[Rfam]
RNA sequence: GGCACUUGUGCGUAUUUUUGUCUUAAAUUGUAGACUAAAACUUAAUGGACAGUUGUAAAAAAAAAGUUCUCUUUUGCAAUCUAGAAUUCAUUGUUCGUUAUGAGUUUUGAUAUAUAUAAGAAGAAAUAUU
Number, nucleotide and partner (000 for none) at each position: 001g000002g056003c055004a054005c000006u052007u051008g050009u049010g000011c047012g000013u000014a000015u040016u039017u038018u037019u000020g035021u034022c000023u000024u000025a000026a000027a000028u000029u000030g000031u000032a000033g000034a021035c020036u000037a018038a017039a016040a015041c000042u000043u000044a000045a000046u000047g011048g000049a009050c008051a007052g006053u000054u004055g003056u002057a000058a000059a000060a000061a000062a000063a000064a000065a000066g127067u126068u125069c000070u123071c000072u121073u120074u119075u118076g117077c000078a000079a000080u000081c000082u109083a108084g107085a106086a105087u104088u103089c102090a101091u100092u000093g000094u000095u000096c000097g000098u000099u000100a091101u090102g089103a088104g087105u086106u085107u084108u083109g082110a000111u000112a000113u000114a000115u000116a000117u076118a075119a074120g073121a072122a000123g070124a000125a068126a067127u066128a000129u000130u000
Description
Rfam assigns this 130-nucleotide RNA sequence from Chinchilla lanigera to the family "Small nucleolar RNA SNORA40". Rfam's curators write: The snoRNA ACA 40 belongs to the H/ACA family of snoRNAs and guides the pseudouridylation of 28S rRNA subunit at position U4565. NB This family has a high threshold value to exclude a large number of closely related sequences that do not appear to have conserved H and ACA boxes, and may be pseudogenes. By type it is an H/ACA-box small nucleolar RNA. It scores 88 bits against the family's covariance model. For this family Rfam cites "Mapping to nucleotide resolution of pseudouridine residues in large subunit ribosomal RNAs from representative eukaryotes, prokaryotes, archaebacteria, mitochondria and chloroplasts" (Ofengand and Bakin, J Mol Biol, 1997). Rfam links the family to the GO terms RNA processing and nucleolus.